[Rfam]
RNA sequence: CUCUUAUAAAGAGCGGCGGAGGGACAGGUCCUGUGAAGCCCGGCAACCACUCCAAGUCAAGAUGACUUGGAAAAGGUGCUACAUCCUGCAAAAUACACAUUGUAUUUUGAAAGAUAAGAG
Numbered sequence: 001c002u003c004u005u006a007u008a009a010a011g012a013g014c015g016g017c018g019g020a021g022g023g024a025c026a027g028g029u030c031c032u033g034u035g036a037a038g039c040c041c042g043g044c045a046a047c048c049a050c051u052c053c054a055a056g057u058c059a060a061g062a063u064g065a066c067u068u069g070g071a072a073a074a075g076g077u078g079c080u081a082c083a084u085c086c087u088g089c090a091a092a093a094u095a096c097a098c099a100u101u102g103u104a105u106u107u108u109g110a111a112a113g114a115u116a117a118g119a120g
Base pairs, nucleotide, nucleotide: 001120002119003118004117005116006115007114013041015040016039017038021031022030023029025088026087027086028085042080043079044078045077047076048075051071052070053069054068055067056066057065084112089109090108091107092106093105094104095103096102
The family of this 120-nucleotide RNA from Planomicrobium sp. YIM 101495 is "SAM riboswitch aptamer (S box leader)". It scores 78 bits against the family's covariance model. Lineage of the source: Bacteria > Bacillati > Bacilli > Caryophanales > Planomicrobium.